Description
Shown here is an 88-nucleotide sequence from Streptomyces cinnamoneus, a member of the family "che1 RNA". It is annotated as a small RNA. Lineage of the source: Bacteria > Actinomycetes > Kitasatosporales > Streptomycetaceae > Streptomyces.

RNA sequence: GGGGCAGGGGGGUCUCCGCCGAGGCGGAGCCUGCCCCCGAGGCCGUGUGAGCGCACGGUCAGUGGUUGUCGCUCGGGGGUGAACGCCG
Numbered sequence: 001g002g003g004g005c006a007g008g009g010g011g012g013u014c015u016c017c018g019c020c021g022a023g024g025c026g027g028a029g030c031c032u033g034c035c036c037c038c039g040a041g042g043c044c045g046u047g048u049g050a051g052c053g054c055a056c057g058g059u060c061a062g063u064g065g066u067u068g069u070c071g072c073u074c075g076g077g078g079g080u081g082a083a084c085g086c087c088g
Base pairs, nucleotide, nucleotide: 001037002036003035004034005033006032007031008030014029015028016027017026018025019024041060042059043058044057045056046055047054048053
Dot-bracket structure: ((((((((.....((((((....))))))))))))))...((((((((....))))))))............................